[Rfam]
RNA: Glycine riboswitch aptamer
Organism: Aeromonas hydrophila
RNA sequence: GGACGAUACUCUGGAGAGACCCGUUGAAUCGGGCGCCGAAGGAGCAAGGCACCGUGAUUGCAUCGCAAUCUGGCGCCGGAAACUCUCAGGCAAAAGGACAGAGGGGAUGGG
Numbered sequence: 001g002g003a004c005g006a007u008a009c010u011c012u013g014g015a016g017a018g019a020c021c022c023g024u025u026g027a028a029u030c031g032g033g034c035g036c037c038g039a040a041g042g043a044g045c046a047a048g049g050c051a052c053c054g055u056g057a058u059u060g061c062a063u064c065g066c067a068a069u070c071u072g073g074c075g076c077c078g079g080a081a082a083c084u085c086u087c088a089g090g091c092a093a094a095a096g097g098a099c100a101g102a103g104g105g106g107a108u109g110g111g
Stems, first nucleotide, its partner, number of pairs: 007105001009103005020033004035091003038087002042085003049077001